[Rfam]
RNA sequence: GAUCGCAGUGAUGACCUCAUGAAAUUCAAGCUCAACAGACCGGAAUGCAGGCUUCUCAUCUGAGAACUUUGCGUGUCGACCACCCCGCUGAACUGAGCGAUC
Numbered sequence: 001g002a003u004c005g006c007a008g009u010g011a012u013g014a015c016c017u018c019a020u021g022a023a024a025u026u027c028a029a030g031c032u033c034a035a036c037a038g039a040c041c042g043g044a045a046u047g048c049a050g051g052c053u054u055c056u057c058a059u060c061u062g063a064g065a066a067c068u069u070u071g072c073g074u075g076u077c078g079a080c081c082a083c084c085c086c087g088c089u090g091a092a093c094u095g096a097g098c099g100a101u102c
Base pairs, nucleotide, nucleotide: 001102002101003100004099005098006097
Notes
A member of the RNA family "Small nucleolar RNA Z107/R87" from Gossypium raimondii, 102 nucleotides long. NCBI's taxonomy places the organism under Eukaryota, Mesangiospermae, rosids, Malvales, Gossypium. The base pairs follow the family's consensus structure, which was predicted with RNAfold. The literature on the family includes a 2001 paper in J Mol Biol by Barneche et al., "Identification of 66 box C/D snoRNAs in Arabidopsis thaliana: extensive gene duplications generated multiple isoforms predicting new ribosomal RNA 2'-O-methylation sites". Gene Ontology terms of the family: nucleolus and RNA processing. The family has 9 seed sequences and 783 matches in Rfam 15.1.